[Rfam]
RNA sequence: GUACUUACCUGGAUGUGGUGAAUGGUUGAUCAUAAAGGACCAUGGCCUAGGAGAGUGACCUCCAUUGCACUUAGGACGGGUUCUAUCCUAAGGUCUACCCAAGUGGUGGAGCCUACAUCAUAAUUUGUUGUUGUGGGGGCCUGCGUUCGUGCGGCCACCUC
Numbered sequence: 001g002u003a004c005u006u007a008c009c010u011g012g013a014u015g016u017g018g019u020g021a022a023u024g025g026u027u028g029a030u031c032a033u034a035a036a037g038g039a040c041c042a043u044g045g046c047c048u049a050g051g052a053g054a055g056u057g058a059c060c061u062c063c064a065u066u067g068c069a070c071u072u073a074g075g076a077c078g079g080g081u082u083c084u085a086u087c088c089u090a091a092g093g094u095c096u097a098c099c100c101a102a103g104u105g106g107u108g109g110a111g112c113c114u115a116c117a118u119c120a121u122a123a124u125u126u127g128u129u130g131u132u133g134u135g136g137g138g139g140c141c142u143g144c145g146u147u148c149g150u151g152c153g154g155c156c157a158c159c160u161c
Base pairs, nucleotide, nucleotide: 012119013118014117015116017047018046019045021043023042024041025040026039027038049089050088051087053086055083057081059079060078062075063074091114092113093112094110095109096108098106099105135160136159137158139156142153143152144151145150